[Rfam]
RNA sequence: AGGAUCCAAUUCUCUUGGGUUUUGCUUUCGAAUCUAGUACUCUUAGGUCCUGCAACAGGAUCCAGUGCUCUUAGGUCCAUCGUCAGGACCCAAGGCUAAUGGGUCUU
Numbered sequence: 001a002g003g004a005u006c007c008a009a010u011u012c013u014c015u016u017g018g019g020u021u022u023u024g025c026u027u028u029c030g031a032a033u034c035u036a037g038u039a040c041u042c043u044u045a046g047g048u049c050c051u052g053c054a055a056c057a058g059g060a061u062c063c064a065g066u067g068c069u070c071u072u073a074g075g076u077c078c079a080u081c082g083u084c085a086g087g088a089c090c091c092a093a094g095g096c097u098a099a100u101g102g103g104u105c106u107u
Base pairs, nucleotide, nucleotide: 001107002106003105004104005103006102007101008100013095014094015093016092017091018090019089020088021087022086023085024084030078032076033075034074035073036072037071043065044064046062047061048060049059050058
Background
A member of the RNA family "MIR6450 microRNA precursor family" from Populus tomentosa, 107 nucleotides long. Taxonomically the source falls in Populus (Eukaryota, Mesangiospermae, rosids, fabids). The match comes from Rfam's covariance-model search (70 bits).